[Rfam]
RNA: Ruegeria cis52 sRNA
RNA sequence: UUCUGAGCGCGUGUUUCAGGACGAUAUUGCCGAAGCUGACCCCCUUCAGGCGGGCGGUGCGGAUGUAUUGCGCGGUCAUGACUUCCGUCAUGGAGGCGCGGGUCAUCCGGGCGAUAUAGCCCACGCCGUAAAGCGCGAUGGUCAUGACGGGCAGGGUGAAGUUCGCGAAGGUCGCGUCC
Numbered sequence: 001u002u003c004u005g006a007g008c009g010c011g012u013g014u015u016u017c018a019g020g021a022c023g024a025u026a027u028u029g030c031c032g033a034a035g036c037u038g039a040c041c042c043c044c045u046u047c048a049g050g051c052g053g054g055c056g057g058u059g060c061g062g063a064u065g066u067a068u069u070g071c072g073c074g075g076u077c078a079u080g081a082c083u084u085c086c087g088u089c090a091u092g093g094a095g096g097c098g099c100g101g102g103u104c105a106u107c108c109g110g111g112c113g114a115u116a117u118a119g120c121c122c123a124c125g126c127c128g129u130a131a132a133g134c135g136c137g138a139u140g141g142u143c144a145u146g147a148c149g150g151g152c153a154g155g156g157u158g159a160a161g162u163u164c165g166c167g168a169a170g171g172u173c174g175c176g177u178c179c
Stems, first nucleotide, its partner, number of pairs: 004141001006139001008137005014131002016128001019126001028123002040111003046105001048103001051100002054097001055075001057073006082096005146178002150173003155164002